[Rfam]
RNA sequence: AAAAAAGCAGGGGUCUGUUGCCUAUGUGAACAGAUCUCUCGUAACCUUCAGGGAUAUAAUAACAUUGUUCUUGGGUGAACCUCUGCUCAUUGUUUGUGACUGAAGGUUCAGUAAAUGAUGGAACAUUC
Numbered sequence: 001a002a003a004a005a006a007g008c009a010g011g012g013g014u015c016u017g018u019u020g021c022c023u024a025u026g027u028g029a030a031c032a033g034a035u036c037u038c039u040c041g042u043a044a045c046c047u048u049c050a051g052g053g054a055u056a057u058a059a060u061a062a063c064a065u066u067g068u069u070c071u072u073g074g075g076u077g078a079a080c081c082u083c084u085g086c087u088c089a090u091u092g093u094u095u096g097u098g099a100c101u102g103a104a105g106g107u108u109c110a111g112u113a114a115a116u117g118a119u120g121g122a123a124c125a126u127u128c
Stems, first nucleotide, its partner, number of pairs: 005048003011037002014034004063120007076110007
Rfam assigns this 128-nucleotide RNA sequence from Lupinus angustifolius to the family "Small nucleolar RNA snoR74". Rfam links the family to the GO terms RNA processing and nucleolus. A reference for the family is Marker et al. (2002), "Experimental RNomics: identification of 140 candidates for small non-messenger RNAs in the plant Arabidopsis thaliana", Curr Biol. It is annotated as an H/ACA-box small nucleolar RNA. The family's consensus secondary structure was predicted with WAR. The family has 9 seed sequences and 1,404 matches in Rfam 15.1.